This 181-nucleotide sequence from Oceaniferula marina belongs to the Rfam family "6S / SsrS RNA".
[Rfam]
RNA sequence: CGCACGCUUCUGUGUGCGUCCGCUAAUGGUAGCAUGCCCGAACCGAUAGACUAUUACUGGGGGCGGCCCCUCUGGACUGAUGUCAUGCCUUUUUAGGAAGACAGAGGAUCGGAGGAUGUCCCCAACCUGUUGAGCAACGGGAACGUGGCUCUAGCUCCAUGGACGGCACAGCGGCACUUUU
Numbered sequence: 001c002g003c004a005c006g007c008u009u010c011u012g013u014g015u016g017c018g019u020c021c022g023c024u025a026a027u028g029g030u031a032g033c034a035u036g037c038c039c040g041a042a043c044c045g046a047u048a049g050a051c052u053a054u055u056a057c058u059g060g061g062g063g064c065g066g067c068c069c070c071u072c073u074g075g076a077c078u079g080a081u082g083u084c085a086u087g088c089c090u091u092u093u094u095a096g097g098a099a100g101a102c103a104g105a106g107g108a109u110c111g112g113a114g115g116a117u118g119u120c121c122c123c124a125a126c127c128u129g130u131u132g133a134g135c136a137a138c139g140g141g142a143a144c145g146u147g148g149c150u151c152u153a154g155c156u157c158c159a160u161g162g163a164c165g166g167c168a169c170a171g172c173g174g175c176a177c178u179u180u181u
Stems, first nucleotide, its partner, number of pairs: 002179001006175003010171006017165003036149003039145002043141002058124003062120004067115001069114001071113005077107001083101002088097002
It is annotated as a non-coding RNA gene.